This 377-nucleotide part of an RNA from Coleofasciculus chthonoplastes belongs to the Rfam family "Bacterial large subunit ribosomal RNA".
It is one of the family's seed sequences.
Rfam links the family to the GO terms structural constituent of ribosome and ribosome.
The source organism's lineage runs through Bacteria, Cyanobacteriota, Coleofasciculaceae, Coleofasciculus and Coleofasciculus chthonoplastes.
A reference for the family is Cannone et al. (2002), "The comparative RNA web (CRW) site: an online database of comparative sequence and structure information for ribosomal, intron, and other RNAs", BMC Bioinformatics.
Pairs were carried over by alignment from the consensus structure, which is taken from published work.

[Rfam]
RNA sequence: GAAAAUAUUGGUGAGAAUCCAAUACCCCGAAACCCUAAGGGUUCCUCUGGAAGGCUCGUCCACGGAGGGUUAGUCAGGACCUAAGGCGAGGGCGAAAGCCGUAGUCGAUGGACAACGGGUUAACAUUCCCGUACCGUUAGCGGUUGGUGCCGGGGGACGAAGUAGGUUUCUAACCAGCCAGGUAUUGGUAGUCCUGGUGUAAGUAACCAAGGUGUUGAUGGGCGGCGAAAACGCCCGGAGCCGAGGUGCGAGUCCGACCUCCUACGGGAGGGAAGUGGUGGAAAUCAGGCUUCCUAGAAAAGCCCGAAACACCAUAAACCGUUAAUGCCUGUACCCGAAACCGACACAGGUAGGGUGGUAGAGUAUACCGAGGGGCG
Numbered sequence: 001g002a003a004a005a006u007a008u009u010g011g012u013g014a015g016a017a018u019c020c021a022a023u024a025c026c027c028c029g030a031a032a033c034c035c036u037a038a039g040g041g042u043u044c045c046u047c048u049g050g051a052a053g054g055c056u057c058g059u060c061c062a063c064g065g066a067g068g069g070u071u072a073g074u075c076a077g078g079a080c081c082u083a084a085g086g087c088g089a090g091g092g093c094g095a096a097a098g099c100c101g102u103a104g105u106c107g108a109u110g111g112a113c114a115a116c117g118g119g120u121u122a123a124c125a126u127u128c129c130c131g132u133a134c135c136g137u138u139a140g141c142g143g144u145u146g147g148u149g150c151c152g153g154g155g156g157a158c159g160a161a162g163u164a165g166g167u168u169u170c171u172a173a174c175c176a177g178c179c180a181g182g183u184a185u186u187g188g189u190a191g192u193c194c195u196g197g198u199g200u201a202a203g204u205a206a207c208c209a210a211g212g213u214g215u216u217g218a219u220g221g222g223c224g225g226c227g228a229a230a231a232c233g234c235c236c237g238g239a240g241c242c243g244a245g246g247u248g249c250g251a252g253u254c255c256g257a258c259c260u261c262c263u264a265c266g267g268g269a270g271g272g273a274a275g276u277g278g279u280g281g282a283a284a285u286c287a288g289g290c291u292u293c294c295u296a297g298a299a300a301a302g303c304c305c306g307a308a309a310c311a312c313c314a315u316a317a318a319c320c321g322u323u324a325a326u327g328c329c330u331g332u333a334c335c336c337g338a339a340a341c342c343g344a345c346a347c348a349g350g351u352a353g354g355g356u357g358g359u360a361g362a363g364u365a366u367a368c369c370g371a372g373g374g375g376c377g
Base pairs, nucleotide, nucleotide: 006024007023008022009021010020011019025375026374027373028372033355034354035353036352039335040334044068045067046066047065048064049063053061054060075331076330077329078328080111081110085106086105087104089102091100092099093098115132116131117130118129119128135327136326137325138324139323140322141321142320143319144318145317147310151306152305153304154303159293160292161291162290165286166285167284173279174278175277176276177198178197179196180195181194182193199254203249204248205247211242212241213240219237220236221235222234223233225232258271259270260269261268262267341350342349357369358368359367360366